[Rfam]
RNA sequence: GGGGGCGCGCGGCGGGCUGUAUCCCGUGCGGCUCCAGUGCACACGUGUAGCACCAUGGGAUUCAGCUCACUUCGCGUCGCC
Numbered sequence: 001g002g003g004g005g006c007g008c009g010c011g012g013c014g015g016g017c018u019g020u021a022u023c024c025c026g027u028g029c030g031g032c033u034c035c036a037g038u039g040c041a042c043a044c045g046u047g048u049a050g051c052a053c054c055a056u057g058g059g060a061u062u063c064a065g066c067u068c069a070c071u072u073c074g075c076g077u078c079g080c081c
Stems, first nucleotide, its partner, number of pairs: 004078004009073001011071002014068002017065003022060007032050002035047002
Source information:
Rfam assigns this 81-nucleotide RNA sequence from Arctia plantaginis to the family "mir-998 microRNA precursor family". Rfam links the family to the GO terms RISC complex and miRNA-mediated post-transcriptional gene silencing. Rfam 15.1 lists 83 matches to the family in 63 species.